This 100-nucleotide sequence from Talaromyces islandicus belongs to the Rfam family "Small nucleolar RNA Z13/snr52". The match comes from Rfam's covariance-model search (77 bits). The family's consensus secondary structure was predicted with PFOLD. Rfam classes the family as a C/D-box small nucleolar RNA. Lineage of the source: Eukaryota > Opisthokonta > leotiomyceta > Eurotiomycetidae > Talaromyces sect. Islandici. Gene Ontology terms of the family: RNA processing and nucleolus.

[Rfam]
RNA sequence: GGUAGUCUGAGGAUGAACUAUUACGGAUGUAUACACAGACCUGUUCUGAGAGUGCAAAACCGUGCGGAGAUUUCCGUUGCCUUCCUUCUGACCUGACUAC
Numbered sequence: 001g002g003u004a005g006u007c008u009g010a011g012g013a014u015g016a017a018c019u020a021u022u023a024c025g026g027a028u029g030u031a032u033a034c035a036c037a038g039a040c041c042u043g044u045u046c047u048g049a050g051a052g053u054g055c056a057a058a059a060c061c062g063u064g065c066g067g068a069g070a071u072u073u074c075c076g077u078u079g080c081c082u083u084c085c086u087u088c089u090g091a092c093c094u095g096a097c098u099a100c
Base pairs, nucleotide, nucleotide: 003099004098005097024076025075026074027073